[Rfam]
RNA sequence: UGGGAGAGAUCCCGCUGGAAUGUGGCCCUGAAAAAAGUCGGGCUGAACCGUGAA
Numbered sequence: 001u002g003g004g005a006g007a008g009a010u011c012c013c014g015c016u017g018g019a020a021u022g023u024g025g026c027c028c029u030g031a032a033a034a035a036a037g038u039c040g041g042g043c044u045g046a047a048c049c050g051u052g053a054a
Base pairs, nucleotide, nucleotide: 001014002013003012004011005010016050017049018048024044025043026042027041028040

Rfam assigns this 54-nucleotide sequence to the family "eL15-Euryarchaeota ribosomal protein leader". It is one of the family's seed sequences. Pairs were carried over by alignment from the consensus structure, which is taken from published work. Rfam classes the family as a cis-regulatory leader.